[Rfam]
RNA sequence: ACAACAAGAAUAAAAGCACGCAGCACACCAAUAAAAACAAUACGUACCGGCUCUGACAUAACAAGAACAACACGGACAGAGACGUAGCUAACAGAUUUUUUUGAAGUGGAUAGCUUUUCUGAACCACUUGCCCUGCAAGUCGUUUGCAGCCAGACAGAGAACAAUAAAACUGCCCUGAGGCAGCUCCGGAACUGGUUGAAUCGUUGCGAUAGAAAGCACGAUGAAAGUGACAUCAGCGCUCAAAAAAAUACGUUUGCUCUUGGUCCAGCCUCUGGACCGCUCAAAAAAGAUGUGAAGGGUCAGGUCGCCAAAAACAACAACAGGCCUCCCGAAAAACAAAAAAGAGCAUAGAGACAUACCUUGAAGGGGAGCCCAGGCUCCCCUUCGUGCUUUCCGACGUUUGCUUUUGCCUGCUCAA
Numbered sequence: 001a002c003a004a005c006a007a008g009a010a011u012a013a014a015a016g017c018a019c020g021c022a023g024c025a026c027a028c029c030a031a032u033a034a035a036a037a038c039a040a041u042a043c044g045u046a047c048c049g050g051c052u053c054u055g056a057c058a059u060a061a062c063a064a065g066a067a068c069a070a071c072a073c074g075g076a077c078a079g080a081g082a083c084g085u086a087g088c089u090a091a092c093a094g095a096u097u098u099u100u101u102u103g104a105a106g107u108g109g110a111u112a113g114c115u116u117u118u119c120u121g122a123a124c125c126a127c128u129u130g131c132c133c134u135g136c137a138a139g140u141c142g143u144u145u146g147c148a149g150c151c152a153g154a155c156a157g158a159g160a161a162c163a164a165u166a167a168a169a170c171u172g173c174c175c176u177g178a179g180g181c182a183g184c185u186c187c188g189g190a191a192c193u194g195g196u197u198g199a200a201u202c203g204u205u206g207c208g209a210u211a212g213a214a215a216g217c218a219c220g221a222u223g224a225a226a227g228u229g230a231c232a233u234c235a236g237c238g239c240u241c242a243a244a245a246a247a248a249u250a251c252g253u254u255u256g257c258u259c260u261u262g263g264u265c266c267a268g269c270c271u272c273u274g275g276a277c278c279g280c281u282c283a284a285a286a287a288a289g290a291u292g293u294g295a296a297g298g299g300u301c302a303g304g305u306c307g308c309c310a311a312a313a314a315c316a317a318c319a320a321c322a323g324g325c326c327u328c329c330c331g332a333a334a335a336a337c338a339a340a341a342a343a344g345a346g347c348a349u350a351g352a353g354a355c356a357u358a359c360c361u362u363g364a365a366g367g368g369g370a371g372c373c374c375a376g377g378c379u380c381c382c383c384u385u386c387g388u389g390c391u392u393u394c395c396g397a398c399g400u401u402u403g404c405u406u407u408u409g410c411c412u413g414c415u416c417a418a
Base pairs, nucleotide, nucleotide: 048084049083051081052080053079054078099245100244101243102242103241113237114236147198148197149196150195151194152193153192170183171182172181173180174179263277264276265275266274297400299398300397301396303326304325305324346390347389348388349387364385365384366383367382368381369380370379371378372377